[Rfam]
RNA sequence: UCGUCCUGAAAACGAAGCGAAACUAACAUCAGAAGAUAAGAUUUCGAAUCGUUUAUCAGGAUGAUG
Numbered sequence: 001u002c003g004u005c006c007u008g009a010a011a012a013c014g015a016a017g018c019g020a021a022a023c024u025a026a027c028a029u030c031a032g033a034a035g036a037u038a039a040g041a042u043u044u045c046g047a048a049u050c051g052u053u054u055a056u057c058a059g060g061a062u063g064a065u066g
Base pairs, nucleotide, nucleotide: 001064002063003062004061005060006059007058008057009056010054011053012052013051014050015049018046019045020044021043022042023040024039
Source information
Shown here is a 66-nucleotide RNA sequence from Caenorhabditis remanei, a member of the family "mir-59 microRNA precursor family". The organism belongs to Caenorhabditis, within Eukaryota. Gene Ontology terms of the family: RISC complex and miRNA-mediated post-transcriptional gene silencing. Rfam's curators put it in the seed alignment.